[Rfam]
The family of this 67-nucleotide RNA sequence from Leishmania major is "Trypanosomatid snoRNA TB9Cs1H1". Gene Ontology terms of the family: RNA processing and nucleolus. On this family, see Liang et al., RNA 2005: "A genome-wide analysis of C/D and H/ACA-like small nucleolar RNAs in Trypanosoma brucei reveals a trypanosome-specific pattern of rRNA modification". Rfam classes the family as an H/ACA-box small nucleolar RNA.

RNA sequence: CGCGCAGUUCAAGAAGCCGGUGCAUGCGUGUGACUGUGUGCUGCACCGGUGCCGAGACUGCGCAAGA
Numbered sequence: 001c002g003c004g005c006a007g008u009u010c011a012a013g014a015a016g017c018c019g020g021u022g023c024a025u026g027c028g029u030g031u032g033a034c035u036g037u038g039u040g041c042u043g044c045a046c047c048g049g050u051g052c053c054g055a056g057a058c059u060g061c062g063c064a065a066g067a
Stems, first nucleotide, its partner, number of pairs: 002063006016050007